small nucleolar RNA snoR126: a 98-nucleotide RNA sequence from Handroanthus impetiginosus. A search with the family's covariance model found it, with a score of 65 bits. NCBI's taxonomy places the organism under Eukaryota, Euphyllophyta, Lamiales, Crescentiina, Handroanthus. The family's consensus secondary structure was predicted with RNAalifold. A reference for the family is Chen and Wu (2009), "Mining small RNA sequencing data: a new approach to identify small nucleolar RNAs in Arabidopsis", Nucleic Acids Res. Rfam links the family to the GO terms RNA processing and nucleolus.
RNA sequence: AGGCGUUGAGGACAGAAAACAUUUCUCGAUGCUGAGUUAUGUAUGGACCAGUGCUUUUAUGGCCUUCUUGAUGACUUGUUUAUGCGUGUCUGAGCCUC
Number, nucleotide and partner (000 for none) at each position: 001a097002g096003g095004c094005g000006u000007u000008g000009a000010g000011g000012a000013c000014a000015g000016a000017a000018a000019a000020c000021a000022u000023u000024u000025c000026u000027c000028g000029a000030u000031g000032c000033u000034g000035a000036g000037u000038u000039a000040u000041g000042u000043a000044u000045g000046g000047a000048c000049c000050a000051g000052u000053g000054c000055u000056u000057u000058u000059a000060u000061g000062g000063c000064c000065u000066u000067c000068u000069u000070g000071a000072u000073g000074a000075c000076u000077u000078g000079u000080u000081u000082a000083u000084g000085c000086g000087u000088g000089u000090c000091u000092g000093a000094g004095c003096c002097u001098c000